The family of this 213-nucleotide sequence from Coprococcus sp. AF21-14LB is "T-box leader".
The source organism's lineage runs through Bacteria, Bacillati, Clostridia, Lachnospiraceae and Coprococcus.
RNA sequence: UGAAAAGCGAUGACGAGACGAGUAAGAUGUGAAAAGAUCCAGAGAGAAGAACCGUUGGCUGGAAGUUCUUUAUCGCAGAAGCAUCUGAAGACUACCUCUGAGCGGCAGCAAAACUGCACGGUGAUUCCGUUAUCAUCAGAAUAAGUGGUUCCAGUCAGAAGACUGGUACAAGCGGGGUGGAACCGCGAGUUACCAUAUCAACUCGUCCCUUGC
Number, nucleotide and partner (000 for none) at each position: 001u000002g000003a000004a000005a000006a000007g103008c102009g000010a000011u000012g000013a000014c000015g098016a097017g096018a000019c000020g000021a000022g000023u000024a000025a086026g085027a084028u083029g082030u081031g000032a000033a000034a000035a000036g074037a073038u000039c000040c000041a000042g000043a000044g000045a000046g000047a070048a069049g068050a067051a066052c065053c000054g000055u000056u000057g000058g000059c000060u000061g000062g000063a000064a000065g052066u051067u050068c049069u048070u047071u000072a000073u037074c036075g000076c000077a000078g000079a000080a000081g030082c029083a028084u027085c026086u025087g000088a000089a000090g000091a000092c000093u000094a000095c000096c017097u016098c015099u000100g000101a000102g008103c007104g000105g117106c116107a115108g114109c000110a000111a000112a000113a000114c108115u107116g106117c105118a000119c129120g128121g127122u000123g000124a000125u000126u000127c121128c120129g119130u000131u000132a000133u000134c000135a000136u000137c000138a000139g000140a000141a000142u000143a000144a000145g000146u000147g000148g169149u168150u000151c166152c165153a164154g163155u000156c000157a000158g000159a000160a000161g000162a000163c154164u153165g152166g151167u000168a149169c148170a000171a000172g000173c000174g210175g209176g208177g207178u000179g000180g000181a000182a000183c000184c000185g206186c205187g204188a203189g202190u201191u200192a000193c000194c000195a000196u000197a000198u000199c000200a191201a190202c189203u188204c187205g186206u185207c177208c176209c175210u174211u000212g000213c000
Rfam links the family to the GO term tRNA binding.
Uncharged tRNA acts as the effector for transcription antitermination of genes in the T-box leader family.
For this family Rfam cites "Interaction between the acceptor end of tRNA and the T box stimulates antitermination in the Bacillus subtilis tyrS gene: a new role for the discriminator base" (Grundy et al., J Bacteriol, 1994).